[Rfam]
RNA sequence: GAUGCGUGCCUUUCGAGGCAUCCUCUCCUGAAAACUUAAGGCCGGGUGGCAACGCCCGGCCUUUUUUUCCGCCCAC
Numbered sequence: 001g002a003u004g005c006g007u008g009c010c011u012u013u014c015g016a017g018g019c020a021u022c023c024u025c026u027c028c029u030g031a032a033a034a035c036u037u038a039a040g041g042c043c044g045g046g047u048g049g050c051a052a053c054g055c056c057c058g059g060c061c062u063u064u065u066u067u068u069c070c071g072c073c074c075a076c
Stems, first nucleotide, its partner, number of pairs: 008019004040061009
Shown here is a 76-nucleotide RNA from Sphingomonas rhizophila, a member of the family "Makes More Granules Regulator RNA (mmgR)". It scores 47 bits against the family's covariance model. The pairing is the family consensus, mapped onto this sequence. The family has 87 seed sequences and 1,791 matches in Rfam 15.1. Rfam's curators write: SuhB later renamed mmgR (makes more granules regulator) was a putative non-coding RNA found multiple times in the Agrobacterium tumefaciens genome and related alpha-proteobacteria.